[Rfam]
RNA: Hairpin ribozyme 1 from viruses-like metatranscriptomes
RNA sequence: GGUCUGUCCUUUGGCAGAGUGGACUUUCGGCUUGAUCGUCCGAGAGGGGGCCAAGUGGCUUCGCUUUGAUCUUAAAAUUGCUGCUCCAAAGGGAAGACUUGAAGAGAGAAACACCUGUGAUUAACGACCACAGGGUAUAUUACCUCUU
Numbered sequence: 001g002g003u004c005u006g007u008c009c010u011u012u013g014g015c016a017g018a019g020u021g022g023a024c025u026u027u028c029g030g031c032u033u034g035a036u037c038g039u040c041c042g043a044g045a046g047g048g049g050g051c052c053a054a055g056u057g058g059c060u061u062c063g064c065u066u067u068g069a070u071c072u073u074a075a076a077a078u079u080g081c082u083g084c085u086c087c088a089a090a091g092g093g094a095a096g097a098c099u100u101g102a103a104g105a106g107a108g109a110a111a112c113a114c115c116u117g118u119g120a121u122u123a124a125c126g127a128c129c130a131c132a133g134g135g136u137a138u139a140u141u142a143c144c145u146c147u148u
Base pairs, nucleotide, nucleotide: 001099002098003097004096009091010090011089012088013087014086047062048061049060050059051058052057102148103147104146105145106144114134115133116132117131118130119129